[Rfam]
This 294-nucleotide sequence from Pseudomonas benzenivorans belongs to the Rfam family "anti ponA RNA". It scores 185 bits against the family's covariance model. It is annotated as an antisense RNA. On this family, see Gomez-Lozano et al., BMC Genomics 2014: "Expression of antisense small RNAs in response to stress in Pseudomonas aeruginosa".
RNA sequence: GAAAUUGUCGUCUUCGGCGGCCAGCAGGGCGUGGAUGAAGUCGGCCGGGAUGUCGCUGAAGGCGAUGGGGGAGCGGCGCAUUUCGCCAAAUUCGGCGAUCAGCUUGGCAUCACUGCUGUAGACGCGCAGGGGGAUCUGCAACUGGAUGCUGCGCAGCGAAUCGACGGAGGGCAGGCUGGGACUAAGAUAGAGAAACGCCCCGCUGAAACUGAGUAACAGCCCACAAAAAGCGGCGACACAAGACCAGCAGAAGAACUUCAGCAGACGCAUCAAGAUUUUUAGAUUUCCAGAUAA
Number, nucleotide and partner (000 for none) at each position: 001g000002a000003a000004a000005u000006u000007g000008u000009c000010g172011u171012c170013u169014u168015c167016g000017g165018c000019g000020g162021c000022c000023a000024g046025c000026a000027g000028g042029g041030c040031g000032u000033g000034g000035a000036u000037g000038a000039a000040g030041u029042c028043g000044g000045c000046c024047g084048g083049g082050a081051u080052g079053u000054c078055g077056c000057u075058g074059a000060a000061g000062g000063c000064g000065a000066u000067g000068g000069g000070g000071g000072a000073g000074c058075g057076g000077c055078g054079c052080a051081u050082u049083u048084c047085g000086c095087c094088a000089a000090a000091u000092u000093c000094g087095g086096c000097g000098a000099u000100c000101a000102g000103c158104u000105u155106g154107g000108c148109a147110u146111c145112a000113c000114u000115g142116c000117u140118g139119u138120a137121g136122a135123c133124g000125c131126g000127c000128a000129g000130g000131g125132g000133g123134a000135u122136c121137u120138g119139c118140a117141a000142c115143u000144g000145g111146a110147u109148g108149c000150u000151g000152c000153g000154c106155a105156g000157c000158g103159a000160a000161u000162c020163g000164a000165c017166g000167g015168a014169g013170g012171g011172c010173a000174g000175g000176c290177u289178g288179g287180g286181a285182c000183u283184a000185a000186g280187a279188u000189a000190g000191a000192g000193a000194a000195a000196c000197g268198c267199c000200c000201c264202g262203c261204u260205g259206a258207a257208a000209c000210u000211g000212a000213g239214u238215a000216a000217c235218a000219g000220c000221c232222c000223a000224c000225a000226a000227a000228a000229a000230g000231c000232g221233g000234c000235g217236a000237c000238a214239c213240a000241a000242g000243a000244c253245c000246a000247g000248c000249a000250g000251a000252a000253g244254a000255a000256c000257u207258u206259c205260a204261g203262c202263a000264g201265a000266c000267g198268c197269a000270u000271c000272a000273a000274g000275a000276u000277u000278u000279u187280u186281a000282g000283a183284u000285u181286u180287c179288c178289a177290g176291a000292u000293a000294a000